[Rfam]
RNA sequence: CAAAAGUAAUCGCCGAAUUUCAUUUACGGAAACGGGGGACCCAUUUUAGGGGUGAAUCCUGUUCGCGCAGGUAGGGCAAUUCUUUCUGUCCGAAUCCGUCAGCUAACCUCGUAGGCGUUGAAAGAGAAGGA
Numbered sequence: 001c002a003a004a005a006g007u008a009a010u011c012g013c014c015g016a017a018u019u020u021c022a023u024u025u026a027c028g029g030a031a032a033c034g035g036g037g038g039a040c041c042c043a044u045u046u047u048a049g050g051g052g053u054g055a056a057u058c059c060u061g062u063u064c065g066c067g068c069a070g071g072u073a074g075g076g077c078a079a080u081u082c083u084u085u086c087u088g089u090c091c092g093a094a095u096c097c098g099u100c101a102g103c104u105a106a107c108c109u110c111g112u113a114g115g116c117g118u119u120g121a122a123a124g125a126g127a128a129g130g131a
Base pairs, nucleotide, nucleotide: 011117012116013115014114018031019030020029032112033111034110035109036108037107042049050097051096052095058071059070060069061068074091075090076089077088
Annotation
The record is a 131-nucleotide RNA from Sporomusa acidovorans, which matches "c-di-AMP riboswitch aptamer (ydaO/yuaA leader)" in Rfam. Lineage of the source: Bacteria > Bacillati > Bacillota > Sporomusaceae > Sporomusa acidovorans. It scores 108 bits against the family's covariance model.